[Rfam]
This 77-nucleotide sequence from Clostridium sp. CAG:265 belongs to the Rfam family "Glycine riboswitch aptamer". NCBI's taxonomy places the organism under Bacteria, Bacillati, Bacillota, Clostridiaceae, Clostridium. About the family: This family represents the bacterial glycine riboswitch. Its family is annotated with glycine biosynthetic process in the Gene Ontology.
RNA sequence: UUGAAGGUAGUGGGAGAGCGAUUUAAUAAUCCACCGAAGAAGUAAAUCUUUCAGGUUUGUAGGACCGCUAUUGGACG
Numbered sequence: 001u002u003g004a005a006g007g008u009a010g011u012g013g014g015a016g017a018g019c020g021a022u023u024u025a026a027u028a029a030u031c032c033a034c035c036g037a038a039g040a041a042g043u044a045a046a047u048c049u050u051u052c053a054g055g056u057u058u059g060u061a062g063g064a065c066c067g068c069u070a071u072u073g074g075a076c077g
Base pairs, nucleotide, nucleotide: 006072007071008070009069010068011067012066013065020031021030022029023028033056034055035054036052037051040050041049042048